[Rfam]
RNA sequence: UGACAGAACUCUGGAGAGACCUUUGAUAGGCGCCGAAGGGGCAAGGUGCGAUUUGCACUAAAUCUCUCAGGCAAAAGGACAGGGACGCUGAA
Numbered sequence: 001u002g003a004c005a006g007a008a009c010u011c012u013g014g015a016g017a018g019a020c021c022u023u024u025g026a027u028a029g030g031c032g033c034c035g036a037a038g039g040g041g042c043a044a045g046g047u048g049c050g051a052u053u054u055g056c057a058c059u060a061a062a063u064c065u066c067u068c069a070g071g072c073a074a075a076a077g078g079a080c081a082g083g084g085a086c087g088c089u090g091a092a
Base pairs, nucleotide, nucleotide: 009084010083011082012081013080020030021029022028032072033071034070035068036067039066040065041064045059046058047057048056

The record is a 92-nucleotide sequence from Clostridium thermosuccinogenes, which matches "Glycine riboswitch aptamer" in Rfam. A search with the family's covariance model found it, with a score of 60 bits. On this family, see Mandal et al., Science 2004: "A glycine-dependent riboswitch that uses cooperative binding to control gene expression".